[Rfam]
RNA sequence: UAGGGCAACCAGCUGUCCCGGUUUGCCCAGGACUUGCACAGUUUUUGUAGGAAACCUUUUGGUCCUGGCAAGCUGGGACAGCUGGUCACCCUAAAGCCCA
Numbered sequence: 001u002a003g004g005g006c007a008a009c010c011a012g013c014u015g016u017c018c019c020g021g022u023u024u025g026c027c028c029a030g031g032a033c034u035u036g037c038a039c040a041g042u043u044u045u046u047g048u049a050g051g052a053a054a055c056c057u058u059u060u061g062g063u064c065c066u067g068g069c070a071a072g073c074u075g076g077g078a079c080a081g082c083u084g085g086u087c088a089c090c091c092u093a094a095a096g097c098c099c100a
Base pairs, nucleotide, nucleotide: 001093002092003091004090005089008086009085010084011083012082013081014080015079019075020074021073022072023071024070025069026068027067029066030065031064032063033062034061036059041056043054044053045052